The record is an 81-nucleotide RNA sequence from Hevea brasiliensis, which matches "MIR477 microRNA precursor family" in Rfam.
The source organism's lineage runs through Eukaryota, Streptophyta, Embryophyta, Spermatophyta and Hevea.
A reference for the family is Lu et al. (2005), "Novel and mechanical stress-responsive MicroRNAs in Populus trichocarpa that are absent from Arabidopsis", Plant Cell.
RNA sequence: GAAGCUUCCAAUCUCCCUCAAAGGCUUCCAAAAUCCCUGGCCAUGGAAAUGUUGGAGACCUUUGGGGGAGAUUGCAGGCUU
Numbered sequence: 001g002a003a004g005c006u007u008c009c010a011a012u013c014u015c016c017c018u019c020a021a022a023g024g025c026u027u028c029c030a031a032a033a034u035c036c037c038u039g040g041c042c043a044u045g046g047a048a049a050u051g052u053u054g055g056a057g058a059c060c061u062u063u064g065g066g067g068g069a070g071a072u073u074g075c076a077g078g079c080u081u
Stems, first nucleotide, its partner, number of pairs: 003080004009074011021062004026057006033050001
The base pairs follow the family's consensus structure, which was predicted with WAR.